[Rfam]
Shown here is a 277-nucleotide RNA sequence from Oryza nivara, a member of the family "MIR821 microRNA precursor family". The family's consensus secondary structure was predicted with RNAalifold. The literature on the family includes a 2006 paper in FEBS Lett by Luo et al., "Rice embryogenic calli express a unique set of microRNAs, suggesting regulatory roles of microRNAs in plant post-embryogenic development". Rfam 15.1 lists 1,438 matches to the family in 13 species.

RNA sequence: GAUUUCAAUUGAAAAAGUCAUCAACAACAAAGUUGUAUGACUCAUCAAGGUCUAUAACUUUUAUUUUUGUCAUUUCUUUUCAUCCGACAAAGUGAUAGUAACAUUGUUCACAAAAUUUACAUAUCUCUCAUUUGGUUUUAUAAACUAUAAGAGUGAUAUGUAAAUUUUGUGAACAAUAUUACUAUCACUUUGUCGGAUGAAGAAAUGACCAAAAUAAAAGUUGUAUGUCUUGAUGAGUUCUACAACUUUUAUGUUCAUGACUUUUUCAGCUAUGUUU
Numbered sequence: 001g002a003u004u005u006c007a008a009u010u011g012a013a014a015a016a017g018u019c020a021u022c023a024a025c026a027a028c029a030a031a032g033u034u035g036u037a038u039g040a041c042u043c044a045u046c047a048a049g050g051u052c053u054a055u056a057a058c059u060u061u062u063a064u065u066u067u068u069g070u071c072a073u074u075u076c077u078u079u080u081c082a083u084c085c086g087a088c089a090a091a092g093u094g095a096u097a098g099u100a101a102c103a104u105u106g107u108u109c110a111c112a113a114a115a116u117u118u119a120c121a122u123a124u125c126u127c128u129c130a131u132u133u134g135g136u137u138u139u140a141u142a143a144a145c146u147a148u149a150a151g152a153g154u155g156a157u158a159u160g161u162a163a164a165u166u167u168u169g170u171g172a173a174c175a176a177u178a179u180u181a182c183u184a185u186c187a188c189u190u191u192g193u194c195g196g197a198u199g200a201a202g203a204a205a206u207g208a209c210c211a212a213a214a215u216a217a218a219a220g221u222u223g224u225a226u227g228u229c230u231u232g233a234u235g236a237g238u239u240c241u242a243c244a245a246c247u248u249u250u251a252u253g254u255u256c257a258u259g260a261c262u263u264u265u266u267c268a269g270c271u272a273u274g275u276u277u
Base pairs, nucleotide, nucleotide: 014264015263016262017261018260019259020258021257023255024254026252030248031247032246033245034244035243036242037241039239040238041237042236044234045233046232047231048230049229050228051227053225055223056222057221058220059219060218061217062216063215064214065213066212067211069209070208071207072206073205074204075203079201080200081199082198083197085195086194087193088192089191090190091189092188093187094186096184097183098182099181100180101179103177104176105175106174107173108172109171110170111169112168113167114166116164117163119161120160121159122158123157124156133147134146135145136144137143138142